[Rfam]
A member of the RNA family "SAM-I/IV (S-adenosyl methionine) riboswitch aptamer" from Formosa sp. Hel1_33_131, 92 nucleotides long. Rfam links the family to the GO terms S-adenosylmethionine metabolic process and regulation of gene expression. NCBI's taxonomy places the organism under Bacteria, Bacteroidota, Flavobacteriia, Flavobacteriales, Formosa. The base pairs follow the family's consensus structure, which is taken from published work. Its Rfam clan is "SAM clan". The family has 417 seed sequences and 567 matches in Rfam 15.1.
RNA sequence: GUAAUGCAUCAGGAACGUUAAUAGCGUACCAACCGACUUCCUCGAAGCACGGUGGUUUAGAAUGCGGGAACUCUCCAAAAAUUAACGAGUCA
Numbered sequence: 001g002u003a004a005u006g007c008a009u010c011a012g013g014a015a016c017g018u019u020a021a022u023a024g025c026g027u028a029c030c031a032a033c034c035g036a037c038u039u040c041c042u043c044g045a046a047g048c049a050c051g052g053u054g055g056u057u058u059a060g061a062a063u064g065c066g067g068g069a070a071c072u073c074u075c076c077a078a079a080a081a082u083u084a085a086c087g088a089g090u091c092a
Stems, first nucleotide, its partner, number of pairs: 006065004015027005028056003033052003037047002041087001067076003